[Rfam]
This 97-nucleotide sequence from Morococcus cerebrosus belongs to the Rfam family "Glycine riboswitch aptamer".

RNA sequence: GGGGCAUGUGCAGGAGAGAGCUACAUCAGGUUACAUGUAGCCGCCGAAGGCGCAGAUGCCCUUAAAUCGCUCAGGCAACAGGGACUGCACAUUGAAA
Numbered sequence: 001g002g003g004g005c006a007u008g009u010g011c012a013g014g015a016g017a018g019a020g021c022u023a024c025a026u027c028a029g030g031u032u033a034c035a036u037g038u039a040g041c042c043g044c045c046g047a048a049g050g051c052g053c054a055g056a057u058g059c060c061c062u063u064a065a066a067u068c069g070c071u072c073a074g075g076c077a078a079c080a081g082g083g084a085c086u087g088c089a090c091a092u093u094g095a096a097a
Stems, first nucleotide, its partner, number of pairs: 006092008020041006043076003046072002050070003056063001
Annotation: This family represents the bacterial glycine riboswitch. The match comes from Rfam's covariance-model search (63 bits).